Small nucleolar RNA R30/Z108: a 100-nucleotide RNA sequence from Panicum miliaceum. snoR30 is a C/D box small nucleolar RNA which acts as a methylation guide for 18S ribosomal RNA in plants. On this family, see Marker et al., Curr Biol 2002: "Experimental RNomics. Identification of 140 Candidates for Small Non-Messenger RNAs in the Plant Arabidopsis thaliana". Taxonomically the source falls in Panicum sect. Panicum (Eukaryota, Viridiplantae, Euphyllophyta, commelinids). The family's consensus secondary structure was predicted with PFOLD. The family has 6 seed sequences and 626 matches in Rfam 15.1. It is annotated as a C/D-box small nucleolar RNA. Its family is annotated with RNA processing and nucleolus in the Gene Ontology.

[Rfam]
RNA sequence: UAGUGUUGCGAUGAGGACAAACAAGCUCCCUCUUCUGAAGGUAUUGAGGACAGUUGCUGGCAGAAUCGAACCAAUUAACCUUAUUGCCACCAUUGAGCAA
Numbered sequence: 001u002a003g004u005g006u007u008g009c010g011a012u013g014a015g016g017a018c019a020a021a022c023a024a025g026c027u028c029c030c031u032c033u034u035c036u037g038a039a040g041g042u043a044u045u046g047a048g049g050a051c052a053g054u055u056g057c058u059g060g061c062a063g064a065a066u067c068g069a070a071c072c073a074a075u076u077a078a079c080c081u082u083a084u085u086g087c088c089a090c091c092a093u094u095g096a097g098c099a100a
Stems, first nucleotide, its partner, number of pairs: 006100004